[Rfam]
MIR5565 microRNA precursor family: a 109-nucleotide RNA sequence from Sorghum bicolor.
Rfam 15.1 lists 3,346 matches to the family in 5 species.

RNA sequence: GUUGUUGGAUUCACCUCAAUCCACAUAUAUUGGAGAUGAUUGAGGUGGAAUUUAAUUCUAGUUCUACUCCAAUCCACUCCAAUACAUAUGGAUUAAUGCGAAUUCGACU
Numbered sequence: 001g002u003u004g005u006u007g008g009a010u011u012c013a014c015c016u017c018a019a020u021c022c023a024c025a026u027a028u029a030u031u032g033g034a035g036a037u038g039a040u041u042g043a044g045g046u047g048g049a050a051u052u053u054a055a056u057u058c059u060a061g062u063u064c065u066a067c068u069c070c071a072a073u074c075c076a077c078u079c080c081a082a083u084a085c086a087u088a089u090g091g092a093u094u095a096a097u098g099c100g101a102a103u104u105c106g107a108c109u
Base pairs, nucleotide, nucleotide: 004108005107006106007105008104009103010102011101012100014098016096018094019093020092021091022090023089025087026086028084029083030082031081032080035077038074039073040072041071042070045067046066047065